RNA sequence: GGCGCUAAACGCUAUGUGGAAUAGGCUUUGCGGACCCGGGGGCGGUACCCGGCGCCUCCACCAUCAACCGGUUCCGGCCGGCGCAUGGGGGCGAAACAGGAUCGACGCGGGCAGUAAAGACAUGGUUUGUGCUCGGCAUGAUACCACCGUUAUCGGGUCAAUCCUCACAAGUGCCAACGACAACGUUGCUCUUGCCGCUGCGGCCUAG
Numbered sequence: 001g002g003c004g005c006u007a008a009a010c011g012c013u014a015u016g017u018g019g020a021a022u023a024g025g026c027u028u029u030g031c032g033g034a035c036c037c038g039g040g041g042g043c044g045g046u047a048c049c050c051g052g053c054g055c056c057u058c059c060a061c062c063a064u065c066a067a068c069c070g071g072u073u074c075c076g077g078c079c080g081g082c083g084c085a086u087g088g089g090g091g092c093g094a095a096a097c098a099g100g101a102u103c104g105a106c107g108c109g110g111g112c113a114g115u116a117a118a119g120a121c122a123u124g125g126u127u128u129g130u131g132c133u134c135g136g137c138a139u140g141a142u143a144c145c146a147c148c149g150u151u152a153u154c155g156g157g158u159c160a161a162u163c164c165u166c167a168c169a170a171g172u173g174c175c176a177a178c179g180a181c182a183a184c185g186u187u188g189c190u191c192u193u194g195c196c197g198c199u200g201c202g203g204c205c206u207a208g
Stems, first nucleotide, its partner, number of pairs: 001133005014123004027111002030108003036052005053093007134149003